[Rfam]
RNA sequence: CCUCGACUUUAACAUGGAGGUACUUGCUGGAUGCCUACAAAGUAAGUGCUUCCAUGUUUUA
Numbered sequence: 001c002c003u004c005g006a007c008u009u010u011a012a013c014a015u016g017g018a019g020g021u022a023c024u025u026g027c028u029g030g031a032u033g034c035c036u037a038c039a040a041a042g043u044a045a046g047u048g049c050u051u052c053c054a055u056g057u058u059u060u061a
Stems, first nucleotide, its partner, number of pairs: 008061001011058018